[Rfam]
RNA sequence: UAAAAGGGCCGGUUGGCUAAAUAUGCCACGCUUACCCUUGUCGGUAAGUGCUGUAUGGCUAUCAAGACAUAUGGCCGGCAUAAUUUAUGGAACCUAAAUAGGGUUGGCUCGCUUGGCCGACCCUCCAU
Numbered sequence: 001u002a003a004a005a006g007g008g009c010c011g012g013u014u015g016g017c018u019a020a021a022u023a024u025g026c027c028a029c030g031c032u033u034a035c036c037c038u039u040g041u042c043g044g045u046a047a048g049u050g051c052u053g054u055a056u057g058g059c060u061a062u063c064a065a066g067a068c069a070u071a072u073g074g075c076c077g078g079c080a081u082a083a084u085u086u087a088u089g090g091a092a093c094c095u096a097a098a099u100a101g102g103g104u105u106g107g108c109u110c111g112c113u114u115g116g117c118c119g120a121c122c123c124u125c126c127a128u
Base pairs, nucleotide, nucleotide: 008079009078010077011076012075014028015027016026017025029050030049031048032047033046034045035044036043051074052073053072054071055070056069057068102122103121104120105119106118107117108116109115
Rfam assigns this 128-nucleotide sequence from Tripterygium wilfordii to the family "U11 spliceosomal RNA". For this family Rfam cites "Additional low-abundance human small nuclear ribonucleoproteins: U11, U12, etc" (Montzka and Steitz, Proc Natl Acad Sci U S A, 1988). By type it is a spliceosomal small nuclear RNA. Its family is annotated with mRNA 5'-splice site recognition, pre-mRNA 5'-splice site binding and U11 snRNP in the Gene Ontology.